[Rfam]
Annotation:
A member of the RNA family "Group II catalytic intron D1-D4-7" from Ricinus communis, 150 nucleotides long. The base pairs follow the family's consensus structure. A search with the family's covariance model found it, with a score of 116 bits. A reference for the family is Bonen and Vogel (2001), "The ins and outs of group II introns", Trends Genet. Rfam describes the family as follows. Group II introns are found in rRNA, tRNA and mRNA of organelles in fungi, plants and protists, and also in mRNA in bacteria.
RNA sequence: CCGGCUGUUCCGUCAGCCGUAACCUACCGGUGCAUGCGGGAUUGGCAACGAUCCGGUGUGAAGCCACCGGGACAACGUAACCCGCUCAUUGAGUGACGACGUUCUUGCAAGAGAGAGUCGUUGUCUGCCAGCGCCAAGGUGGAUGGGGUG
Numbered sequence: 001c002c003g004g005c006u007g008u009u010c011c012g013u014c015a016g017c018c019g020u021a022a023c024c025u026a027c028c029g030g031u032g033c034a035u036g037c038g039g040g041a042u043u044g045g046c047a048a049c050g051a052u053c054c055g056g057u058g059u060g061a062a063g064c065c066a067c068c069g070g071g072a073c074a075a076c077g078u079a080a081c082c083c084g085c086u087c088a089u090u091g092a093g094u095g096a097c098g099a100c101g102u103u104c105u106u107g108c109a110a111g112a113g114a115g116a117g118u119c120g121u122u123g124u125c126u127g128c129c130a131g132c133g134c135c136a137a138g139g140u141g142g143a144u145g146g147g148g149u150g
Base pairs, nucleotide, nucleotide: 002019003018004017005016006015007014028069029068030067031066032065033060034059035058036057037056039054040053041052042051043050044049083095084094085093086092087091097120098119099118100117105112106111124143125142126141127140128139129138